RNA sequence: GUGCCCUUUUAAGGUUGCUGCAAUACUUUAAGAGGCUAACACAGAAGGGUAAAGCAAGUCUCCAUAAAACCUAGAGAUGAGGUUGGUACAACUCCUCUUUGGAUCCUGUCUGGAGUCAUAACU
Numbered sequence: 001g002u003g004c005c006c007u008u009u010u011a012a013g014g015u016u017g018c019u020g021c022a023a024u025a026c027u028u029u030a031a032g033a034g035g036c037u038a039a040c041a042c043a044g045a046a047g048g049g050u051a052a053a054g055c056a057a058g059u060c061u062c063c064a065u066a067a068a069a070c071c072u073a074g075a076g077a078u079g080a081g082g083u084u085g086g087u088a089c090a091a092c093u094c095c096u097c098u099u100u101g102g103a104u105c106c107u108g109u110c111u112g113g114a115g116u117c118a119u120a121a122c123u
Stems, first nucleotide, its partner, number of pairs: 002051009014040004019035001021032001058117001060115005071102007079094003083091002
Shown here is a 123-nucleotide RNA from Echinops telfairi, a member of the family "Small nucleolar RNA SNORA26".
A reference for the family is Huttenhofer et al. (2001), "RNomics: an experimental approach that identifies 201 candidates for novel, small, non-messenger RNAs in mouse", EMBO J.
Rfam's curators put it in the seed alignment.
About the family: The snoRNA HBI-6 belong to the H/ACA family of snoRNAs, guiding the pseudouridylation of position U4522 if the 28S rRNA. HBI-6 is the human orthologue of mouse MBI-6 snoRNA.
By type it is an H/ACA-box small nucleolar RNA.
Rfam links the family to the GO terms nucleolus and RNA processing.
Its Rfam clan is "SNORA27 clan".
The organism belongs to Echinops, within Eukaryota.
The family has 76 seed sequences and 1,943 matches in Rfam 15.1.